[Rfam]
This 253-nucleotide RNA from Leminorella grimontii belongs to the Rfam family "Yersinia sRNA 283". Identified in transcriptional profiling by RNA seq.
RNA sequence: CGAUAGCGGGAACGAUCAGCAGCAAUGCAAUACCGGGGACGAUCAUCGCCAGCGCCCAUACGCCCCAAUCGAGGUGUACGUCCAGGAUCUUCGCCGCAAAGUCGGCGGUGAGGAGGUUCGGCGCCAUGGCGGUAAUGAAGAUAAAGCUGCUAACCUUCAUCACGAAGUAGAUGUUGGACAUCAGGUAAGAACCUGCUUUCUGGGCACUUUCUCCCGGCUCUGAGCCCAAUGCUUUAACGACGGAAAGCACUAU
Numbered sequence: 001c002g003a004u005a006g007c008g009g010g011a012a013c014g015a016u017c018a019g020c021a022g023c024a025a026u027g028c029a030a031u032a033c034c035g036g037g038g039a040c041g042a043u044c045a046u047c048g049c050c051a052g053c054g055c056c057c058a059u060a061c062g063c064c065c066c067a068a069u070c071g072a073g074g075u076g077u078a079c080g081u082c083c084a085g086g087a088u089c090u091u092c093g094c095c096g097c098a099a100a101g102u103c104g105g106c107g108g109u110g111a112g113g114a115g116g117u118u119c120g121g122c123g124c125c126a127u128g129g130c131g132g133u134a135a136u137g138a139a140g141a142u143a144a145a146g147c148u149g150c151u152a153a154c155c156u157u158c159a160u161c162a163c164g165a166a167g168u169a170g171a172u173g174u175u176g177g178a179c180a181u182c183a184g185g186u187a188a189g190a191a192c193c194u195g196c197u198u199u200c201u202g203g204g205c206a207c208u209u210u211c212u213c214c215c216g217g218c219u220c221u222g223a224g225c226c227c228a229a230u231g232c233u234u235u236a237a238c239g240a241c242g243g244a245a246a247g248c249a250c251u252a253u
Stems, first nucleotide, its partner, number of pairs: 006063003019028002035044002048055002066247001069244002074127003080124002082121002085118002090112005096106002129150005167238002170235002174229004181223003189220002192217002195214001

A reference for the family is Nuss et al. (2015), "Transcriptomic profiling of Yersinia pseudotuberculosis reveals reprogramming of the Crp regulon by temperature and uncovers Crp as a master regulator of small RNAs", PLoS Genet.